[Rfam]
RNA sequence: UUAAAUCGAAGAGGUUGCGAUUGACAUAAGUAGACUAGUCGAACAGCUACCACUGUGAUGACAUUAGUCAAAAGGGGAAAUCGCCGAGGUGCUAGUAAUGGUAGUUAUUAGUGUUCUGGGACGUAGCUCAAGAGGCUACGGACUGUCGUAGGCUGAAUCUACGGAGAGCUUUGAAUCGU
Numbered sequence: 001u002u003a004a005a006u007c008g009a010a011g012a013g014g015u016u017g018c019g020a021u022u023g024a025c026a027u028a029a030g031u032a033g034a035c036u037a038g039u040c041g042a043a044c045a046g047c048u049a050c051c052a053c054u055g056u057g058a059u060g061a062c063a064u065u066a067g068u069c070a071a072a073a074g075g076g077g078a079a080a081u082c083g084c085c086g087a088g089g090u091g092c093u094a095g096u097a098a099u100g101g102u103a104g105u106u107a108u109u110a111g112u113g114u115u116c117u118g119g120g121a122c123g124u125a126g127c128u129c130a131a132g133a134g135g136c137u138a139c140g141g142a143c144u145g146u147c148g149u150a151g152g153c154u155g156a157a158u159c160u161a162c163g164g165a166g167a168g169c170u171u172u173g174a175a176u177c178g179u
Base pairs, nucleotide, nucleotide: 006174007173008172009171010170011169017084018083019082020081021080022079025076033069034068035067036066037065038064039063088117089116090113091112092111093110094109095108096107097106098105099104118144119143122140123139124138125137126136127135128134146164147163148162149161150160151159152158
This 179-nucleotide RNA from Acetilactobacillus jinshanensis belongs to the Rfam family "Lysine riboswitch aptamer".
The match comes from Rfam's covariance-model search (100 bits).
Riboswitches are metabolite binding domains within certain messenger RNAs that serve as precision sensors for their corresponding targets.
The base pairs follow the family's consensus structure, which is taken from published work.